[Rfam]
This 132-nucleotide sequence from Promerops cafer belongs to the Rfam family "Small nucleolar RNA SNORA13". From the family's description: ACA13 is a member of the H/ACA class of snoRNA that guide the sites of modification of uridines to pseudouridines. Rfam 15.1 lists 1,034 matches to the family in 605 species. Clan: SNORA13 clan. Gene Ontology terms of the family: RNA processing and nucleolus. Rfam classes the family as an H/ACA-box small nucleolar RNA.
RNA sequence: GGCCUUUGUGUUGCCCAUUCAUUCCUGUCCAGAGUGGAUGUGGUGUCAAAAAAGGCAAACAGGAAUUCUUGCUCAAACUGGUUAGGGAGCUGGUUAUGUACCUUCCUUCUCUCUGUUUUUGCAAGGACAAAA
Numbered sequence: 001g002g003c004c005u006u007u008g009u010g011u012u013g014c015c016c017a018u019u020c021a022u023u024c025c026u027g028u029c030c031a032g033a034g035u036g037g038a039u040g041u042g043g044u045g046u047c048a049a050a051a052a053a054g055g056c057a058a059a060c061a062g063g064a065a066u067u068c069u070u071g072c073u074c075a076a077a078c079u080g081g082u083u084a085g086g087g088a089g090c091u092g093g094u095u096a097u098g099u100a101c102c103u104u105c106c107u108u109c110u111c112u113c114u115g116u117u118u119u120u121g122c123a124a125g126g127a128c129a130a131a132a
Stems, first nucleotide, its partner, number of pairs: 002056006009048002012045004016040008068125004074121004084112004088107002092102002